[Rfam]
RNA sequence: UGUGCAGUGGUGGGGUCCCUCAGCCAGGCCUGCGGUGAUAGGGCUGAAACUAGCUCUCCAACAUUCCUCAAGGAGUCCUGGAUUGCGAGAGGGCACAGGCCAGGCUGAGGGACCCCACUGGUGCACA
Numbered sequence: 001u002g003u004g005c006a007g008u009g010g011u012g013g014g015g016u017c018c019c020u021c022a023g024c025c026a027g028g029c030c031u032g033c034g035g036u037g038a039u040a041g042g043g044c045u046g047a048a049a050c051u052a053g054c055u056c057u058c059c060a061a062c063a064u065u066c067c068u069c070a071a072g073g074a075g076u077c078c079u080g081g082a083u084u085g086c087g088a089g090a091g092g093g094c095a096c097a098g099g100c101c102a103g104g105c106u107g108a109g110g111g112a113c114c115c116c117a118c119u120g121g122u123g124c125a126c127a
Stems, first nucleotide, its partner, number of pairs: 003125002006122001008120003012116014027101006034094001
Annotation:
Rfam assigns this 127-nucleotide RNA sequence from Pipistrellus kuhlii to the family "mir-9193 microRNA precursor family". Gene Ontology terms of the family: RISC complex and miRNA-mediated post-transcriptional gene silencing. The organism belongs to Pipistrellus, within Eukaryota.